[Rfam]
RNA: SAM riboswitch aptamer (S box leader)
RNA sequence: CUCUUAUCGAGAGAGGGUUAGGGAACAGGCCCGAUGACCCCUCGGCAACCAUCUGUCCCCGGACAGAAAGGUGCCAAUUCCUGCAGGGCAAUUGCCCUGGCAGAUGAGAG
Numbered sequence: 001c002u003c004u005u006a007u008c009g010a011g012a013g014a015g016g017g018u019u020a021g022g023g024a025a026c027a028g029g030c031c032c033g034a035u036g037a038c039c040c041c042u043c044g045g046c047a048a049c050c051a052u053c054u055g056u057c058c059c060c061g062g063a064c065a066g067a068a069a070g071g072u073g074c075c076a077a078u079u080c081c082u083g084c085a086g087g088g089c090a091a092u093u094g095c096c097c098u099g100g101c102a103g104a105u106g107a108g109a110g
Base pairs, nucleotide, nucleotide: 001110002109003108004107005106006105007104008103013043014042015041016040017039021032022031023030026083027082028081029080044075045074046073047072049071050070052067053066054065055064079102084099085098086097087096088095089094